[Rfam]
RNA sequence: AUGAUGCAAGUAGGAGAGACCCAGAAGGGCGCCGAAGGGGUAAGUUUGGUUUGCCGAACCUUAUGAUACUCUCAGGCAAAAGAACUACUUGUUGACA
Number, nucleotide and partner (000 for none) at each position: 001a000002u000003g000004a000005u000006g092007c091008a090009a089010g088011u087012a086013g085014g000015a000016g000017a000018g000019a000020c029021c028022c027023a000024g000025a000026a000027g022028g021029g020030c000031g077032c076033c075034g073035a072036a000037g000038g071039g070040g069041u000042a000043a000044g064045u063046u000047u000048g000049g000050u000051u000052u000053g000054c000055c000056g000057a000058a000059c000060c000061u000062u000063a045064u044065g000066a000067u000068a000069c040070u039071c038072u035073c034074a000075g033076g032077c031078a000079a000080a000081a000082g000083a000084a000085c013086u012087a011088c010089u009090u008091g007092u006093u000094g000095a000096c000097a000
RNA: Glycine riboswitch aptamer
Organism: Caloramator mitchellensis